[Rfam]
RNA: let-7 microRNA precursor family
Organism: Callipepla squamata
RNA sequence: GGGGGGUGAGGUAGUCGGUUGUAUUGUUGGGGGGCCGGGAUGGGGCCCCACACUCGAGGUAACGAUGCAGCCGACUACUUUCCCCCA
Numbered sequence: 001g002g003g004g005g006g007u008g009a010g011g012u013a014g015u016c017g018g019u020u021g022u023a024u025u026g027u028u029g030g031g032g033g034g035c036c037g038g039g040a041u042g043g044g045g046c047c048c049c050a051c052a053c054u055c056g057a058g059g060u061a062a063c064g065a066u067g068c069a070g071c072c073g074a075c076u077a078c079u080u081u082c083c084c085c086c087a
Base pairs, nucleotide, nucleotide: 002086003085004084005083006082008081009080010079011078012077013076014075015074016073017072018071019070020069021068022067023066024065025064026063027062032048033047034046035045051058